[Rfam]
RNA sequence: UGCGAUGAGUCGAGAAUAUCACGUCGCUAGCAAUAGCGGUUUGCGCGAGCAACUAGGUGAUUUUUUUGCACAGCAGGCAAUGUAACACCGCCGGAUUUGCGGCUGCCUUGGUUCAAAGGAAAUGUGGAUUUU
Numbered sequence: 001u002g003c004g005a006u007g008a009g010u011c012g013a014g015a016a017u018a019u020c021a022c023g024u025c026g027c028u029a030g031c032a033a034u035a036g037c038g039g040u041u042u043g044c045g046c047g048a049g050c051a052a053c054u055a056g057g058u059g060a061u062u063u064u065u066u067u068g069c070a071c072a073g074c075a076g077g078c079a080a081u082g083u084a085a086c087a088c089c090g091c092c093g094g095a096u097u098u099g100c101g102g103c104u105g106c107c108u109u110g111g112u113u114c115a116a117a118g119g120a121a122a123u124g125u126g127g128a129u130u131u132u
Stems, first nucleotide, its partner, number of pairs: 018061005023040006041052004075108005088102004119132005
RNA: Enterococcus sRNA 68 (Lacto-3 RNA)